[Rfam]
RNA: Archaeal large subunit ribosomal RNA, nucleotides 550 to 647
Organism: Methanothrix harundinacea
Nucleotides: 098
Stems, first nucleotide, its partner, number of pairs: 001080010015069002021064007031055001036049005084097003
Number, partner (000 for none) and nucleotide at each position: 001080g002079a003078u004077g005076u006075g007074g008073c009072g010071u011000c012000a013000a014000a015069g016068g017000a018000u019000a020000c021064u022063c023062a024061g025060c026059a027058c028000g029000a030000a031055g032000g033000a034000a035000a036049a037048c038047g039046u040045c041000g042000c043000g044000a045040g046039g047038c048037g049036u050000c051000g052000g053000u054000a055031c056000g057000a058027g059026u060025g061024c062023u063022g064021a065000a066000u067000g068016c069015c070000a071010g072009c073008g074007u075006c076005a077004c078003a079002u080001c081000u082000u083000a084097c085096g086095u087000u088000u089000u090000g091000a092000a093000g094000a095086a096085c097084g098000g